[Rfam]
RNA sequence: CACUUCGCGUUCUCUAAUUCGCUUGGUGCAGGUCGGGAACCACUACUUCCGCAGUUUUCGUACGUAAUGACGACGGAACAAUCACCGGCGGAGAAUUGGAUCCCGCCUUGCAUCAACUGAAUCGGAGGCCGCGGUGAAG
Numbered sequence: 001c002a003c004u005u006c007g008c009g010u011u012c013u014c015u016a017a018u019u020c021g022c023u024u025g026g027u028g029c030a031g032g033u034c035g036g037g038a039a040c041c042a043c044u045a046c047u048u049c050c051g052c053a054g055u056u057u058u059c060g061u062a063c064g065u066a067a068u069g070a071c072g073a074c075g076g077a078a079c080a081a082u083c084a085c086c087g088g089c090g091g092a093g094a095a096u097u098g099g100a101u102c103c104c105g106c107c108u109u110g111c112a113u114c115a116a117c118u119g120a121a122u123c124g125g126a127g128g129c130c131g132c133g134g135u136g137a138a139g
Base pairs, nucleotide, nucleotide: 013126014125017122018121019120020119023116024115025114026113027112028111029110030109031108032107034105035104036103037102038101040099041098

The family of this 139-nucleotide sequence from Lathyrus oleraceus is "MIR168 microRNA precursor family". For this family Rfam cites "MicroRNAs in plants" (Reinhart et al., Genes Dev, 2002). The organism belongs to Lathyrus, within Eukaryota.